RNA sequence: CGAAUAGCGGGAGGCGAUGACACGCGGUCCAUACCCCGGCCGCCGGGACCGCACCGAGCCACUGGCGAGACCGACCCGUACGUGG
Numbered sequence: 001c002g003a004a005u006a007g008c009g010g011g012a013g014g015c016g017a018u019g020a021c022a023c024g025c026g027g028u029c030c031a032u033a034c035c036c037c038g039g040c041c042g043c044c045g046g047g048a049c050c051g052c053a054c055c056g057a058g059c060c061a062c063u064g065g066c067g068a069g070a071c072c073g074a075c076c077c078g079u080a081c082g083u084g085g
Base pairs, nucleotide, nucleotide: 001085003083007079008078009077010076011075013060014059015058024052025051026050027049028048029047038072039071041067042066043065044064

The family of this 85-nucleotide RNA sequence is "c-di-GMP-II-GAG riboswitch aptamer". Its family is annotated with regulation of gene expression and cyclic-di-GMP binding in the Gene Ontology. The family's consensus secondary structure is taken from published work.